[Rfam]
RNA sequence: CGGCGUGGACGACCUCGCCGCGGCCCUGGCGGAUUUCGGGCCGACCCGG
Number, nucleotide and partner (000 for none) at each position: 001c020002g019003g018004c017005g016006u000007g014008g013009a000010c000011g000012a000013c008014c007015u000016c005017g004018c003019c002020g001021c000022g000023g000024c000025c000026c000027u000028g000029g000030c000031g000032g000033a000034u000035u000036u049037c048038g047039g046040g045041c000042c000043g000044a000045c040046c039047c038048g037049g036
A member of the RNA family "Guanidine-II riboswitch aptamer (mini-ykkC)" from Nostocoides jenkinsii, 49 nucleotides long. Pairs were carried over by alignment from the consensus structure, which is taken from published work.